Shown here is a 269-nucleotide sequence from Mus musculus, a member of the family "Mason-Pfizer monkey virus packaging signal". Rfam describes the family as follows. This family represents a group of sequences that are related to the Mason-Pfizer monkey virus (MPMV) packaging signal. The packaging signal is located in the 5' UTR and is required for specific RNA encapsidation. It scores 72 bits against the family's covariance model. It is annotated as a cis-regulatory element. The organism belongs to Mus, within Eukaryota.
RNA sequence: UGGCACCCAGCAAGUGGGGCUCGAGUAUGGGGGCUUCAGUGAAGAAUGCCUUGGUGUUUCUGUUCAGCUGAUUUUGUGUGGAAGACGCCCUGCAAGGGAGCCUGCUGCCCUGACUAGGGAUCCCGGUUAGUCUGCAGUAAUCAUGGGACAGGCACUUAGUAGCCAUGAACUCUUUGUGGAAGGUUUGAAAAGGGCUUUAAAGGCUCAAGGGAUAAAGGUUAAAAGACUUACUUGCAUUUUCUUUGAUUUUGUAAAAGAGAUUUGUCCAU
Numbered sequence: 001u002g003g004c005a006c007c008c009a010g011c012a013a014g015u016g017g018g019g020c021u022c023g024a025g026u027a028u029g030g031g032g033g034c035u036u037c038a039g040u041g042a043a044g045a046a047u048g049c050c051u052u053g054g055u056g057u058u059u060c061u062g063u064u065c066a067g068c069u070g071a072u073u074u075u076g077u078g079u080g081g082a083a084g085a086c087g088c089c090c091u092g093c094a095a096g097g098g099a100g101c102c103u104g105c106u107g108c109c110c111u112g113a114c115u116a117g118g119g120a121u122c123c124c125g126g127u128u129a130g131u132c133u134g135c136a137g138u139a140a141u142c143a144u145g146g147g148a149c150a151g152g153c154a155c156u157u158a159g160u161a162g163c164c165a166u167g168a169a170c171u172c173u174u175u176g177u178g179g180a181a182g183g184u185u186u187g188a189a190a191a192g193g194g195c196u197u198u199a200a201a202g203g204c205u206c207a208a209g210g211g212a213u214a215a216a217g218g219u220u221a222a223a224a225g226a227c228u229u230a231c232u233u234g235c236a237u238u239u240u241c242u243u244u245g246a247u248u249u250u251g252u253a254a255a256a257g258a259g260a261u262u263u264g265u266c267c268a269u
Base pairs, nucleotide, nucleotide: 006033007032008031012028014026038051039049040048084122085121088119089118092114093112094111096106097105128151130149131148133147135145136144156199158197159195160194206245207244208243209242210241211240212239216233217232218231219230221228254269257266258265